RNA: Small nucleolar RNA SNORD99
Organism: Galemys pyrenaicus
RNA sequence: ACUGGUCCAGGAUGAAACCUAUCUGAGUGGACAUGCAUGGAUGACAGAUGCGGAUAUGGGACUGAGACCAGUU
Numbered sequence: 001a002c003u004g005g006u007c008c009a010g011g012a013u014g015a016a017a018c019c020u021a022u023c024u025g026a027g028u029g030g031a032c033a034u035g036c037a038u039g040g041a042u043g044a045c046a047g048a049u050g051c052g053g054a055u056a057u058g059g060g061a062c063u064g065a066g067a068c069c070a071g072u073u
Stems, first nucleotide, its partner, number of pairs: 001072005